[Rfam]
Nucleotides: 364
Base pairs, nucleotide, nucleotide: 001360002359003358004357005356006355007354008353009352010351012329013328014327015326016325017324018323020059021058023056024055025054026053027052028051064347065346066345068344069343070342071341072340073233074232075231076230080266081265082264083263085229086228087227088226089225090104091103092102093101094100105119106117107116108115109114120224121223125222126221127218128217142163143162144159145158146157147156148155149154171189172188173187174186175185176184190213191211192210193209194208195207196205197204198203237286238285239284240283247277248276249275250274251273252272257271258270259269260268261267293312294311295310296309297308298307299306300305
Number, partner (000 for none) and nucleotide at each position: 001360u002359g003358a004357g005356u006355c007354a008353g009352c010351c011000a012329g013328a014327u015326a016325a017324u018323c019000g020059c021058u022000g023056c024055u025054u026053u027052a028051u029000c030000g031000u032000u033000g034000u035000a036000c037000u038000u039000u040000c041000g042000g043000g044000u045000a046000u047000a048000c049000g050000g051028g052027u053026a054025a055024a056023g057000g058021g059020g060000a061000g062000g063000a064347a065346a066345g067000u068344c069343c070342g071341g072340g073233c074232u075231c076230c077000a078000c079000a080266g081265g082264g083263c084000a085229g086228g087227g088226u089225g090104c091103c092102a093101g094100c095000u096000a097000a098000c099000a100094g101093c102092u103091g104090g105119g106117g107116g108115g109114c110000g111000c112000g113000a114109g115108c116107c117106u118000a119105c120224g121223a122000c123000a124000a125222g126221u127218g128217c129000a130000g131000c132000a133000g134000a135000g136000a137000g138000g139000a140000g141000a142163c143162c144159g145158c146157c147156a148155g149154c150000u151000u152000a153000g154149g155148u156147u157146g158145g159144u160000a161000a162143g163142g164000g165000u166000g167000a168000a169000a170000g171189g172188g173187u174186g175185c176184g177000g178000u179000a180000a181000g182000a183000g184176c185175g186174c187173a188172c189171c190213g191211g192210g193209c194208c195207a196205c197204u198203g199000g200000u201000a202000a203198c204197a205196g206000u207195u208194g209193g210192u211191u212000g213190c214000a215000a216000g217128g218127u219000a220000a221126a222125c223121u224120c225089c226088a227087c228086c229085c230076g231075g232074a233073g234000c235000a236000a237286g238285a239284c240283c241000a242000a243000a244000u245000a246000g247277g248276g249275u250274u251273c252272c253000u254000u255000a256000u257271g258270g259269u260268g261267u262000g263083g264082c265081c266080c267261a268260c269259a270258u271257c272252g273251g274250a275249a276248c277247c278000g279000g280000g281000u282000a283240g284239g285238u286237u287000g288000c289000u290000u291000g292000a293312g294311c295310c296309u297308u298307g299306g300305a301000g302000c303000g304000a305300u306299c307298c308297a309296a310295g311294g312293c313000c314000u315000a316000g317000a318000c319000g320000a321000a322000u323018g324017a325016u326015u327014a328013u329012c330000c331000a332000c333000g334000a335000c336000a337000g338000a339000a340072c341071c342070c343069g344068g345066c346065u347064u348000a349000c350000c351010g352009g353008c354007u355006g356005a357004c358003u359002c360001a361000u362000c363000a364000a

This 364-nucleotide sequence from Pseudoalteromonas piratica belongs to the Rfam family "Bacterial RNase P class A".
It is annotated as a ribozyme.
Pairs were carried over by alignment from the consensus structure, which is taken from published work.